[Rfam]
RNA sequence: AGAGUAGGCGCAGGCAGUUGCGGAUUUACUGUUGAGGUAAAUCUGAGGAAAGUCCGGGCUCCUCAAAGACCAGACUUGCUGGAUAACGCCCAGUGCGGGUGACCGUGAGGAUAGUGCCACAGAAACAUACCGCCGAUGAAGCAAUUAGCUAACAGGUAAGGGUGCAAAGGUGCGGUAAGAGCGCACCAGCAGCAUCGAGAGGUGCUGGCUCGGUAAACCCCGGUUGGGAGCAAGGAAGGAACCAAGGUUGGUCUUUUUCCGGUUCCGAUGUUAAAACCGCUUGAGGCGUUUGGUAACAAGCGUCCCAGAUAGAUAACUGCCCUCAAAGGUGGUGAAAGCCACGUUUGAUGAACAGAACCCGGCUUAUGUCCGACUCUCUCU
Numbered sequence: 001a002g003a004g005u006a007g008g009c010g011c012a013g014g015c016a017g018u019u020g021c022g023g024a025u026u027u028a029c030u031g032u033u034g035a036g037g038u039a040a041a042u043c044u045g046a047g048g049a050a051a052g053u054c055c056g057g058g059c060u061c062c063u064c065a066a067a068g069a070c071c072a073g074a075c076u077u078g079c080u081g082g083a084u085a086a087c088g089c090c091c092a093g094u095g096c097g098g099g100u101g102a103c104c105g106u107g108a109g110g111a112u113a114g115u116g117c118c119a120c121a122g123a124a125a126c127a128u129a130c131c132g133c134c135g136a137u138g139a140a141g142c143a144a145u146u147a148g149c150u151a152a153c154a155g156g157u158a159a160g161g162g163u164g165c166a167a168a169g170g171u172g173c174g175g176u177a178a179g180a181g182c183g184c185a186c187c188a189g190c191a192g193c194a195u196c197g198a199g200a201g202g203u204g205c206u207g208g209c210u211c212g213g214u215a216a217a218c219c220c221c222g223g224u225u226g227g228g229a230g231c232a233a234g235g236a237a238g239g240a241a242c243c244a245a246g247g248u249u250g251g252u253c254u255u256u257u258u259c260c261g262g263u264u265c266c267g268a269u270g271u272u273a274a275a276a277c278c279g280c281u282u283g284a285g286g287c288g289u290u291u292g293g294u295a296a297c298a299a300g301c302g303u304c305c306c307a308g309a310u311a312g313a314u315a316a317c318u319g320c321c322c323u324c325a326a327a328g329g330u331g332g333u334g335a336a337a338g339c340c341a342c343g344u345u346u347g348a349u350g351a352a353c354a355g356a357a358c359c360c361g362g363c364u365u366a367u368g369u370c371c372g373a374c375u376c377u378c379u380c381u
Stems, first nucleotide, its partner, number of pairs: 001377005007371002010369003013321007021045009050365003054362005059230004068255002073225003077222002079093004094108001095106004109220002114218002116214003130161002132157003137152001139150001169187006189209001190207007234278002238266006246260002250256001285304008
Description
This 381-nucleotide RNA from Crinalium epipsammum belongs to the Rfam family "Bacterial RNase P class A". It scores 251 bits against the family's covariance model. The family's RNA type in Rfam is ribozyme.